[Rfam]
RNA sequence: AUCAACAAGCAGAAGCACCCGCUUCUCACCUGAUUGACACAUUCUUGUAGUUGGCAGGUUAAACGUACAUUUCUUAUUUUUCUAUGCAAUGUUCGCAGUGUGGGUGUUUCGAUGCCCGCACUUUUUGUUUGCC
Numbered sequence: 001a002u003c004a005a006c007a008a009g010c011a012g013a014a015g016c017a018c019c020c021g022c023u024u025c026u027c028a029c030c031u032g033a034u035u036g037a038c039a040c041a042u043u044c045u046u047g048u049a050g051u052u053g054g055c056a057g058g059u060u061a062a063a064c065g066u067a068c069a070u071u072u073c074u075u076a077u078u079u080u081u082c083u084a085u086g087c088a089a090u091g092u093u094c095g096c097a098g099u100g101u102g103g104g105u106g107u108u109u110c111g112a113u114g115c116c117c118g119c120a121c122u123u124u125u126u127g128u129u130u131g132c133c
Stems, first nucleotide, its partner, number of pairs: 011026006028059003036052003039048002099120009